[Rfam]
RNA sequence: CGGCACGUUGGACAGACGCUCUGCUUCUCUUUAAAGAGCACGGAUUUAUCCACACCGUGUGACAUGAAUGAAAUGAGAAGUUUUCAGGGAUGCCAACCUCUCCGUUAAGGUUUUGCAGUGGUAUAUUUCUAAUACAAUA
Numbered sequence: 001c002g003g004c005a006c007g008u009u010g011g012a013c014a015g016a017c018g019c020u021c022u023g024c025u026u027c028u029c030u031u032u033a034a035a036g037a038g039c040a041c042g043g044a045u046u047u048a049u050c051c052a053c054a055c056c057g058u059g060u061g062a063c064a065u066g067a068a069u070g071a072a073a074u075g076a077g078a079a080g081u082u083u084u085c086a087g088g089g090a091u092g093c094c095a096a097c098c099u100c101u102c103c104g105u106u107a108a109g110g111u112u113u114u115g116c117a118g119u120g121g122u123a124u125a126u127u128u129c130u131a132a133u134a135c136a137a138u139a
Base pairs, nucleotide, nucleotide: 003060004059005058006057007056017042018039019038020037021036022035079130080129089119093115095112096111097110098109099108